Nucleotides: 343
Base pairs, nucleotide, nucleotide: 039054040053041052042051043050058195059194060193061192062191069188070187071186072185073184074183075182084174085173086172088171089170090169094110095109096108097107098106111156112155113154114153115152116151117150196211197210198209199208201222202221203220310324311323312322313321315341316340318338319337
Number, partner (000 for none) and nucleotide at each position: 001000u002000c003000a004000c005000u006000u007000c008000a009000c010000a011000u012000u013000a014000a015000g016000a017000c018000c019000g020000g021000c022000a023000u024000c025000g026000c027000u028000a029000u030000a031000u032000a033000g034000g035000c036000g037000g038000u039054g040053c041052c042051g043050g044000u045000u046000u047000c048000g049000g050043c051042c052041g053040g054039c055000u056000a057000u058195g059194g060193c061192g062191a063000u064000a065000a066000a067000c068000u069188g070187c071186g072185c073184c074183g075182u076000g077000c078000a079000a080000u081000a082000g083000g084174u085173a086172c087000a088171a089170c090169g091000g092000a093000c094110c095109c096108g097107g098106g099000g100000g101000c102000a103000g104000u105000a106098c107097c108096c109095g110094g111156c112155g113154g114153c115152u116151c117150c118000a119000c120000c121000a122000u123000a124000a125000c126000c127000c128000g129000c130000u131000g132000u133000a134000a135000u136000u137000g138000g139000c140000g141000g142000u143000u144000u145000u146000u147000g148000a149000c150117g151116g152115g153114g154113c155112c156111g157000a158000a159000c160000c161000a162000g163000g164000a165000u166000c167000g168000a169090c170089g171088u172086g173085u174084g175000c176000u177000g178000a179000a180000a181000g182075a183074c184073g185072g186071u187070g188069u189000u190000u191062u192061u193060g194059c195058c196211c197210g198209g199208g200000c201222u202221g203220a204000g205000u206000a207000a208199c209198c210197c211196g212000c213000a214000u215000a216000a217000g218000g219000c220203u221202c222201a223000c224000a225000a226000c227000a228000c229000a230000c231000a232000a233000g234000u235000g236000c237000c238000a239000a240000c241000g242000a243000u244000a245000a246000c247000g248000a249000a250000g251000c252000a253000c254000u255000c256000g257000c258000u259000c260000u261000c262000g263000c264000a265000g266000c267000g268000u269000a270000a271000u272000c273000u274000g275000a276000c277000g278000g279000g280000c281000u282000a283000a284000c285000g286000c287000c288000c289000u290000g291000a292000u293000c294000u295000u296000a297000c298000a299000a300000a301000g302000c303000u304000a305000a306000a307000g308000c309000g310324c311323g312322g313321u314000u315341g316340g317000a318338c319337c320000c321313a322312c323311c324310g325000g326000g327000c328000a329000a330000c331000a332000g333000a334000a335000g336000c337319g338318g339000a340316u341315u342000c343000c

Source information:
Rfam assigns this 343-nucleotide sequence from Qipengyuania soli to the family "Alphaproteobacteria transfer-messenger RNA". By type it is a non-coding RNA gene. Lineage of the source: Bacteria > Pseudomonadati > Pseudomonadota > Erythrobacteraceae > Qipengyuania. It scores 237 bits against the family's covariance model. Gene Ontology term of the family: RNA catabolic process.